[Rfam]
RNA sequence: UGCGCAGCGCGUGCUUCAUGACGAUGUUCGAGAACGAGACGCCCUUGAGGCGGGCGGUUCGGAUGUACUGCGCGGUCAUAACUUCGGUCAUCGAAGCGCGUGUCAUCCGCGCGAUAUAUCCCAUCCCGUAAAGGGCAAUGGUCAGAACCGGCAGGAAGAAGUUCUCGAAAGUCGGGUUC
Numbered sequence: 001u002g003c004g005c006a007g008c009g010c011g012u013g014c015u016u017c018a019u020g021a022c023g024a025u026g027u028u029c030g031a032g033a034a035c036g037a038g039a040c041g042c043c044c045u046u047g048a049g050g051c052g053g054g055c056g057g058u059u060c061g062g063a064u065g066u067a068c069u070g071c072g073c074g075g076u077c078a079u080a081a082c083u084u085c086g087g088u089c090a091u092c093g094a095a096g097c098g099c100g101u102g103u104c105a106u107c108c109g110c111g112c113g114a115u116a117u118a119u120c121c122c123a124u125c126c127c128g129u130a131a132a133g134g135g136c137a138a139u140g141g142u143c144a145g146a147a148c149c150g151g152c153a154g155g156a157a158g159a160a161g162u163u164c165u166c167g168a169a170a171g172u173c174g175g176g177u178u179c
Stems, first nucleotide, its partner, number of pairs: 005140002009136002012133001015130001016128001020125002028123001030121001040111003046105003050101003054097001055075001057073002060070003082096005145179003148175005154165004